[Rfam]
RNA sequence: CGAGUUGGCCGGGCGGCCGCGGAUCACGAGAGAAAUCUCGCGGUUCGAGGAAAGUCCGGACUUCACAGAGCAGGGUGAUUGCUAACGGCAAUCCGAGGUGACUCGCGGGACAGUGCCACAGAAAACAGACCGCCACCACUCGUGGUGGUAAGGGUGAAACGGUGCGGUAAGAGCGCACCAGCGGACCGGGUGACCGGUUCGGCUCGGUAAACCCCACCCGAAGCAAGGCCAAAAGGCUGUGCGUGCACAGCUGCGGAAGUGUUCGAGGGCUGCUCGCCCGAGCUUCCGGGUAGGCCGCUCGAGGUACCCGGCGACGGUGUACCCAGAUGGAUGGUCGCCGCCGCGUGGCCGCGGCUAGCCCGUGGCUGUGCGGAACAGGAUCCGGCUUACAGGCCAACUCGUUCG
Numbered sequence: 001c002g003a004g005u006u007g008g009c010c011g012g013g014c015g016g017c018c019g020c021g022g023a024u025c026a027c028g029a030g031a032g033a034a035a036u037c038u039c040g041c042g043g044u045u046c047g048a049g050g051a052a053a054g055u056c057c058g059g060a061c062u063u064c065a066c067a068g069a070g071c072a073g074g075g076u077g078a079u080u081g082c083u084a085a086c087g088g089c090a091a092u093c094c095g096a097g098g099u100g101a102c103u104c105g106c107g108g109g110a111c112a113g114u115g116c117c118a119c120a121g122a123a124a125a126c127a128g129a130c131c132g133c134c135a136c137c138a139c140u141c142g143u144g145g146u147g148g149u150a151a152g153g154g155u156g157a158a159a160c161g162g163u164g165c166g167g168u169a170a171g172a173g174c175g176c177a178c179c180a181g182c183g184g185a186c187c188g189g190g191u192g193a194c195c196g197g198u199u200c201g202g203c204u205c206g207g208u209a210a211a212c213c214c215c216a217c218c219c220g221a222a223g224c225a226a227g228g229c230c231a232a233a234a235g236g237c238u239g240u241g242c243g244u245g246c247a248c249a250g251c252u253g254c255g256g257a258a259g260u261g262u263u264c265g266a267g268g269g270c271u272g273c274u275c276g277c278c279c280g281a282g283c284u285u286c287c288g289g290g291u292a293g294g295c296c297g298c299u300c301g302a303g304g305u306a307c308c309c310g311g312c313g314a315c316g317g318u319g320u321a322c323c324c325a326g327a328u329g330g331a332u333g334g335u336c337g338c339c340g341c342c343g344c345g346u347g348g349c350c351g352c353g354g355c356u357a358g359c360c361c362g363u364g365g366c367u368g369u370g371c372g373g374a375a376c377a378g379g380a381u382c383c384g385g386c387u388u389a390c391a392g393g394c395c396a397a398c399u400c401g402u403u404c405g
Stems, first nucleotide, its partner, number of pairs: 001401010011390001012339007020047006027040004052388003056385005061223004068275004073219005078092005093107001094105004108214002113212002115208003130153002132149007161179006181203001182201008227296004255287006267279004303323005308317003